[Rfam]
RNA: MIR1520 microRNA precursor family
RNA sequence: UUUUUAUUGGAUGACAACUGUCAAGUAUCAUGUUCUGAUUGGAUAUCAACUCAAUGAAAGAUGAAAUGCAUUGUUAUUUUCAUUAAUCAAAAUAUGAUACGUGACAAUUAUCAUCC
Numbered sequence: 001u002u003u004u005u006a007u008u009g010g011a012u013g014a015c016a017a018c019u020g021u022c023a024a025g026u027a028u029c030a031u032g033u034u035c036u037g038a039u040u041g042g043a044u045a046u047c048a049a050c051u052c053a054a055u056g057a058a059a060g061a062u063g064a065a066a067u068g069c070a071u072u073g074u075u076a077u078u079u080u081c082a083u084u085a086a087u088c089a090a091a092a093u094a095u096g097a098u099a100c101g102u103g104a105c106a107a108u109u110a111u112c113a114u115c116c
Stems, first nucleotide, its partner, number of pairs: 020105004025100002029096003033092002036089001038087003